[Rfam]
RNA: U4 spliceosomal RNA
RNA sequence: ACCUUUGCACAGUGGCAGUAUCGUAGCCAAUGAGGUUUAUCCGAGGCGCGAUUAUUGCUAAUUGAAAAUCAUCACAAAACCGAUAGAGUCACAAGUGCUAUUUAGCACUCUACAAAUAAUUAAUGAAGAGUUAAAUAUUCAAC
Numbered sequence: 001a002c003c004u005u006u007g008c009a010c011a012g013u014g015g016c017a018g019u020a021u022c023g024u025a026g027c028c029a030a031u032g033a034g035g036u037u038u039a040u041c042c043g044a045g046g047c048g049c050g051a052u053u054a055u056u057g058c059u060a061a062u063u064g065a066a067a068a069u070c071a072u073c074a075c076a077a078a079a080c081c082g083a084u085a086g087a088g089u090c091a092c093a094a095g096u097g098c099u100a101u102u103u104a105g106c107a108c109u110c111u112a113c114a115a116a117u118a119a120u121u122a123a124u125g126a127a128g129a130g131u132u133a134a135a136u137a138u139u140c141a142a143c
Stems, first nucleotide, its partner, number of pairs: 020052005026047003034042002087117001089115001094109006130143003